[Rfam]
Notes
A member of the RNA family "SAM/SAH riboswitch aptamer" from Roseovarius faecimaris, 48 nucleotides long. The base pairs follow the family's consensus structure, which is taken from published work. NCBI's taxonomy places the organism under Bacteria, Pseudomonadati, Alphaproteobacteria, Roseobacteraceae, Roseovarius.
RNA sequence: AACCCGUCACAACGGCUUCCUGGCGUGACGGUGACACUUAAUGGAGCA
Numbered sequence: 001a002a003c004c005c006g007u008c009a010c011a012a013c014g015g016c017u018u019c020c021u022g023g024c025g026u027g028a029c030g031g032u033g034a035c036a037c038u039u040a041a042u043g044g045a046g047c048a
Stems, first nucleotide, its partner, number of pairs: 004031007013022002015047003019044002